RNA sequence: UGAUAUACAGGUGUCACAAUACAAAAAGUUUUCAUGCUUGCAUGAGAAACUUUUUGUAUUCGUGACCCGCACAAACAUGAGGAAAAAAGCUGUUUGCGGAGCAAAUCAGCGAUUUCCGAAUGUUUGUAGAAUUACGAGAAUGGCUCCGCCAUGGAGUAAUUCGUAUAUCA
Numbered sequence: 001u002g003a004u005a006u007a008c009a010g011g012u013g014u015c016a017c018a019a020u021a022c023a024a025a026a027a028g029u030u031u032u033c034a035u036g037c038u039u040g041c042a043u044g045a046g047a048a049a050c051u052u053u054u055u056g057u058a059u060u061c062g063u064g065a066c067c068c069g070c071a072c073a074a075a076c077a078u079g080a081g082g083a084a085a086a087a088a089g090c091u092g093u094u095u096g097c098g099g100a101g102c103a104a105a106u107c108a109g110c111g112a113u114u115u116c117c118g119a120a121u122g123u124u125u126g127u128a129g130a131a132u133u134a135c136g137a138g139a140a141u142g143g144c145u146c147c148g149c150c151a152u153g154g155a156g157u158a159a160u161u162c163g164u165a166u167a168u169c170a
Base pairs, nucleotide, nucleotide: 001170002169003168004167005166006165007164011067014064018060019059020058021057022056023055024054025053026052027051028050029049030048031047032045033044034043035042036041071127072126073125074124075123076122077121078120081117082116083115084114089110090109091108092107094105095104129162130161131160132159133158134157135156140152141151142150143149
Dot-bracket structure: (((((((...(..(...(((((((((((((((((((....))))).))))))))))))))...)..)...((((((((..((((....((((.((........)).))))...))))..)))))))).(((((((....((((.....))))...))))))).)))))))
The family of this 170-nucleotide RNA from Butyrivibrio sp. XB500-5 is "Clostridiales-1 RNA". The family's RNA type in Rfam is small RNA.